[Rfam]
RNA sequence: AUGAAACCCGCGUUAGUGAUUGCAACGGCAUCCUUUUUUACCAUGCAACGCAGUGAAAUGGUAAAAAAGAUAUAGUGGAAAGCACGACCUGAA
Number, nucleotide and partner (000 for none) at each position: 001a000002u000003g000004a000005a000006a000007c000008c000009c000010g000011c000012g000013u000014u000015a000016g085017u084018g083019a000020u081021u080022g000023c000024a000025a076026c075027g000028g000029c000030a071031u070032c069033c000034u000035u000036u066037u065038u064039u063040a062041c061042c060043a059044u000045g000046c000047a000048a000049c000050g000051c000052a000053g000054u000055g000056a000057a000058a000059u043060g042061g041062u040063a039064a038065a037066a036067a000068a000069g032070a031071u030072a000073u000074a000075g026076u025077g000078g000079a000080a021081a020082g000083c018084a017085c016086g000087a000088c000089c000090u000091g000092a000093a000
Flavo-1 RNA: a 93-nucleotide sequence from Lutibacter sp. HS1-25. NCBI's taxonomy places the organism under Bacteria, Flavobacteriia, Flavobacteriales, Flavobacteriaceae, Lutibacter.